[Rfam]
RNA sequence: AUCUCUGCGUGUUCGCAGCGCACCUUGAUUUAAUGUGUAAUCAAUUAAGGCACGCGGUGAAUGCUAAGAGCG
Numbered sequence: 001a002u003c004u005c006u007g008c009g010u011g012u013u014c015g016c017a018g019c020g021c022a023c024c025u026u027g028a029u030u031u032a033a034u035g036u037g038u039a040a041u042c043a044a045u046u047a048a049g050g051c052a053c054g055c056g057g058u059g060a061a062u063g064c065u066a067a068g069a070g071c072g
Stems, first nucleotide, its partner, number of pairs: 003070004009064008018055003023050008

Rfam assigns this 72-nucleotide RNA from Hemibagrus wyckioides to the family "mir-124 microRNA precursor family". The source organism's lineage runs through Eukaryota, Craniata, Teleostomi, Osteoglossocephalai and Hemibagrus. On this family, see Lai et al., Genome Biol 2003: "Computational identification of Drosophila microRNA genes". A search with the family's covariance model found it, with a score of 73 bits. The family's consensus secondary structure was predicted with PFOLD.